[Rfam]
Annotation: Shown here is an 85-nucleotide RNA from Glycine max, a member of the family "Small nucleolar RNA R64/Z200 family". The family's RNA type in Rfam is C/D-box small nucleolar RNA.
RNA sequence: GUUUUGCGGUGAAGAAUUAGAAUCAAAUUCACAUGUUAGAGAUUUUCAAAUCAAUGAGAAUGACAAUUCUAUUACUGAGCAACUU
Numbered sequence: 001g002u003u004u005u006g007c008g009g010u011g012a013a014g015a016a017u018u019a020g021a022a023u024c025a026a027a028u029u030c031a032c033a034u035g036u037u038a039g040a041g042a043u044u045u046u047c048a049a050a051u052c053a054a055u056g057a058g059a060a061u062g063a064c065a066a067u068u069c070u071a072u073u074a075c076u077g078a079g080c081a082a083c084u085u
Stems, first nucleotide, its partner, number of pairs: 001085001004082004041052004
For this family Rfam cites "Purified box C/D snoRNPs are able to reproduce site-specific 2'-O-methylation of target RNA in vitro" (Galardi et al., Mol Cell Biol, 2002).